[Rfam]
RNA sequence: CUUCUGCGGUGAUGAAAUUAAUUUUCGCAUGUCAGACUUCAGAGAUUUUUCAUUAAAUCAAUGAGAUGAAUAACUUCACUUUGACCUGAGCAGAAG
Numbered sequence: 001c002u003u004c005u006g007c008g009g010u011g012a013u014g015a016a017a018u019u020a021a022u023u024u025u026c027g028c029a030u031g032u033c034a035g036a037c038u039u040c041a042g043a044g045a046u047u048u049u050u051c052a053u054u055a056a057a058u059c060a061a062u063g064a065g066a067u068g069a070a071u072a073a074c075u076u077c078a079c080u081u082u083g084a085c086c087u088g089a090g091c092a093g094a095a096g
Stems, first nucleotide, its partner, number of pairs: 001096007044059004
RNA: Small nucleolar RNA R64/Z200 family